[Rfam]
RNA sequence: AAGAUCCUUGAGUCAAUAAAGACUUAGAAAAUUGACUUAAGAAAAAA
Numbered sequence: 001a002a003g004a005u006c007c008u009u010g011a012g013u014c015a016a017u018a019a020a021g022a023c024u025u026a027g028a029a030a031a032u033u034g035a036c037u038u039a040a041g042a043a044a045a046a047a
Stems, first nucleotide, its partner, number of pairs: 007041002010038008
RNA: Plastid-rpl16 group II-D1 intron